Notes: Rfam assigns this 138-nucleotide RNA from Kryptolebias marmoratus to the family "Small nucleolar RNA SNORA15". Rfam's curators write: ACA15 is a member of the H/ACA class of snoRNA that guide the sites of modification of uridines to pseudouridines. Gene Ontology terms of the family: RNA processing and nucleolus. Taxonomically the source falls in Kryptolebias (Eukaryota, Teleostomi, Ctenosquamata, Atherinomorphae).
RNA sequence: GCAUGGCUGAAUUCUGUGUUACUUUGUGGUGUAGUAAACACAGUCAGACACCGUGCUAAAGGAAUACAUUCCCACGCUGACCCGACAAGAAGGGAGAGCGUUCCCGCGCCUCUUUCUUACGUCAGAGUGAAUACAGUA
Dot-bracket structure: ((((((.......((((((..................)))))).......))))))............((((....(((((........(((((((((...........)))))))))..))))).).))).......
Numbered sequence: 001g002c003a004u005g006g007c008u009g010a011a012u013u014c015u016g017u018g019u020u021a022c023u024u025u026g027u028g029g030u031g032u033a034g035u036a037a038a039c040a041c042a043g044u045c046a047g048a049c050a051c052c053g054u055g056c057u058a059a060a061g062g063a064a065u066a067c068a069u070u071c072c073c074a075c076g077c078u079g080a081c082c083c084g085a086c087a088a089g090a091a092g093g094g095a096g097a098g099c100g101u102u103c104c105c106g107c108g109c110c111u112c113u114u115u116c117u118u119a120c121g122u123c124a125g126a127g128u129g130a131a132u133a134c135a136g137u138a
Stems, first nucleotide, its partner, number of pairs: 001056006014043006069131003072127001077125005090118009